[Rfam]
RNA sequence: GCAUAUUUCACGUUUGUGCGUGAAUCUAACAACCCUUUUCAUCAGAAAAACUGUUGUUGUUUGCUAGAUUCACGCACAAACUCGUAAUAUGUAU
Numbered sequence: 001g002c003a004u005a006u007u008u009c010a011c012g013u014u015u016g017u018g019c020g021u022g023a024a025u026c027u028a029a030c031a032a033c034c035c036u037u038u039u040c041a042u043c044a045g046a047a048a049a050a051c052u053g054u055u056g057u058u059g060u061u062u063g064c065u066a067g068a069u070u071c072a073c074g075c076a077c078a079a080a081c082u083c084g085u086a087a088u089a090u091g092u093a094u
Base pairs, nucleotide, nucleotide: 001092002091003090005088006087007086012081013080014079015078016077017076018075019074020073021072022071023070024069025068026067028065030063042050
This 94-nucleotide sequence from Solanum tuberosum belongs to the Rfam family "MIR403 microRNA precursor family". The organism belongs to Solanum, within Eukaryota. It is one of the family's seed sequences. The family's consensus secondary structure was predicted with WAR.